[Rfam]
Rfam assigns this 78-nucleotide RNA from Acer saccharum to the family "small nucleolar RNA snoR117". The family's consensus secondary structure was predicted with RNAalifold. Its family is annotated with nucleolus and RNA processing in the Gene Ontology. NCBI's taxonomy places the organism under Eukaryota, Tracheophyta, rosids, malvids, Acer.
RNA sequence: GGCCGGUGAUGCACACAAAAUUGUCCGUACCAUCUGAAACACUGAUGUUAUCAAUUGCAAUCAAUCCUCCUAUGGCCU
Numbered sequence: 001g002g003c004c005g006g007u008g009a010u011g012c013a014c015a016c017a018a019a020a021u022u023g024u025c026c027g028u029a030c031c032a033u034c035u036g037a038a039a040c041a042c043u044g045a046u047g048u049u050a051u052c053a054a055u056u057g058c059a060a061u062c063a064a065u066c067c068u069c070c071u072a073u074g075g076c077c078u
Base pairs, nucleotide, nucleotide: 001077002076003075004074